[Rfam]
Small nucleolar RNA SNORA38: a 132-nucleotide RNA sequence from Cavia porcellus. ACA38 is a member of the H/ACA class of snoRNA that guide the sites of modification of uridines to pseudouridines.
Nucleotides: 132
Base pairs, nucleotide, nucleotide: 002057003056004055005054006053015044016043017042018041019040021038024030025029071124072123074122092110093109094108095107096106097105098104
Number, partner (000 for none) and nucleotide at each position: 001000c002057c003056c004055u005054c006053c007000u008000a009000c010000a011000a012000a013000g014000a015044u016043g017042u018041g019040u020000c021038u022000u023000u024030g025029a026000u027000u028000c029025u030024u031000u032000g033000u034000c035000u036000u037000u038021a039000c040019a041018c042017a043016c044015a045000u046000a047000a048000g049000a050000g051000u052000u053006g054005g055004a056003g057002g058000c059000a060000g061000a062000a063000a064000a065000g066000u067000u068000g069000u070000g071124g072123a073000u074122u075000u076000g077000g078000a079000g080000a081000c082000a083000u084000c085000u086000g087000g088000g089000g090000c091000c092110a093109g094108c095107u096106u097105g098104c099000u100000c101000c102000c103000c104098g105097c106096a107095g108094g109093c110092u111000c112000a113000a114000g115000a116000u117000c118000a119000a120000c121000c122074a123072u124071c125000g126000c127000a128000c129000a130000u131000a132000a
About this RNA:
NCBI's taxonomy places the organism under Eukaryota, Vertebrata, Tetrapoda, Euarchontoglires, Cavia.